[Rfam]
RNA sequence: UGGAGACUUGAGAAAGUUUUGCAGUUGUUUUUAGUACUGCCACAACUGGUUUUGUUCUCCAAGACUAAACCCUAAACGCAGUCUGUAGUGUCUGAAUGUCUUUUUCAGACUUUAAGCUGUGUUUAUGAACAAUUC
Number, nucleotide and partner (000 for none) at each position: 001u000002g060003g059004a058005g057006a056007c000008u000009u000010g000011a000012g000013a000014a000015a047016g046017u045018u044019u042020u000021g040022c039023a038024g037025u036026u000027g000028u000029u000030u000031u000032u000033a000034g000035u000036a025037c024038u023039g022040c021041c000042a019043c000044a018045a017046c016047u015048g000049g000050u000051u000052u000053u000054g000055u000056u006057c005058u004059c003060c002061a000062a000063g000064a000065c000066u000067a000068a000069a000070c000071c000072c000073u000074a000075a000076a000077c000078g000079c000080a000081g000082u000083c000084u000085g120086u119087a118088g000089u000090g000091u000092c000093u114094g113095a112096a111097u000098g000099u109100c108101u000102u000103u000104u000105u000106c000107a000108g100109a099110c000111u096112u095113u094114a093115a000116g000117c000118u087119g086120u085121g000122u000123u000124u000125a000126u000127g000128a000129a000130c000131a000132a000133u000134u000135c000
Rfam assigns this 135-nucleotide RNA sequence from Carassius auratus to the family "Small nucleolar RNA SNORA47". For this family Rfam cites "RNomics: an experimental approach that identifies 201 candidates for novel, small, non-messenger RNAs in mouse" (Huttenhofer et al., EMBO J, 2001). The base pairs follow the family's consensus structure, which was predicted with WAR. Rfam classes the family as an H/ACA-box small nucleolar RNA. Lineage of the source: Eukaryota > Chordata > Euteleostomi > Neopterygii > Carassius. A search with the family's covariance model found it, with a score of 48 bits. Rfam 15.1 lists 733 matches to the family in 635 species.